MIR396 microRNA precursor family: a 114-nucleotide sequence from Prunus persica.

RNA sequence: GGUCAUGCUUUUCCACAGCUUUCUUGAACUUCAAUUCUUUGCUGUCUAAGCUUAUCGCUUUCAAGAUUAGCUAGCGCCAUCGAAGCUCAAGAAAGCUGUGGGAGAACAUGGCAA
Numbered sequence: 001g002g003u004c005a006u007g008c009u010u011u012u013c014c015a016c017a018g019c020u021u022u023c024u025u026g027a028a029c030u031u032c033a034a035u036u037c038u039u040u041g042c043u044g045u046c047u048a049a050g051c052u053u054a055u056c057g058c059u060u061u062c063a064a065g066a067u068u069a070g071c072u073a074g075c076g077c078c079a080u081c082g083a084a085g086c087u088c089a090a091g092a093a094a095g096c097u098g099u100g101g102g103a104g105a106a107c108a109u110g111g112c113a114a
Stems, first nucleotide, its partner, number of pairs: 003111005013101003017097006024090004029085004
Description
The family's consensus secondary structure was predicted with WAR. The organism belongs to Prunus, within Eukaryota. A search with the family's covariance model found it, with a score of 88 bits. On this family, see Jones-Rhoades and Bartel, Mol Cell 2004: "Computational identification of plant microRNAs and their targets, including a stress-induced miRNA".